[Rfam]
RNA sequence: UAUCGCUGCCCUCAUAGGGCGUUUCCUCCCUAGACUUGGGCCGUCGAAAGACGGCCCUUCUGUUUUCCGCGC
Numbered sequence: 001u002a003u004c005g006c007u008g009c010c011c012u013c014a015u016a017g018g019g020c021g022u023u024u025c026c027u028c029c030c031u032a033g034a035c036u037u038g039g040g041c042c043g044u045c046g047a048a049a050g051a052c053g054g055c056c057c058u059u060c061u062g063u064u065u066u067c068c069g070c071g072c
Base pairs, nucleotide, nucleotide: 008020009019010018011017038057039056040055041054042053043052044051045050